Record summary: A member of the RNA family "U12 minor spliceosomal RNA" from Blastocystis hominis, 146 nucleotides long. Clan: U2 clan. By type it is a spliceosomal small nuclear RNA.

RNA sequence: UGGCCUCAAACUAAUGAGUAAGGAAACUAACGCUUCCACUGAUAAUGGAGGCAUCGUAGAUUUACGGUCUAUUUUUGUAGGGUAUGGAACGGCCUAGGUUUGGUGCUCCGCCUCUUUGCGGAGUUGAACUCUGGCUGGUCCCCGCC
Numbered sequence: 001u002g003g004c005c006u007c008a009a010a011c012u013a014a015u016g017a018g019u020a021a022g023g024a025a026a027c028u029a030a031c032g033c034u035u036c037c038a039c040u041g042a043u044a045a046u047g048g049a050g051g052c053a054u055c056g057u058a059g060a061u062u063u064a065c066g067g068u069c070u071a072u073u074u075u076u077g078u079a080g081g082g083u084a085u086g087g088a089a090c091g092g093c094c095u096a097g098g099u100u101u102g103g104u105g106c107u108c109c110g111c112c113u114c115u116u117u118g119c120g121g122a123g124u125u126g127a128a129c130u131c132u133g134g135c136u137g138g139u140c141c142c143c144g145c146c
Base pairs, nucleotide, nucleotide: 004023005022006021008019032052033051034050035049036048037047038046053068054067055066056065057064081145086142087141089139090138092136096130098129099128100127101126102125107122108121109120110119111118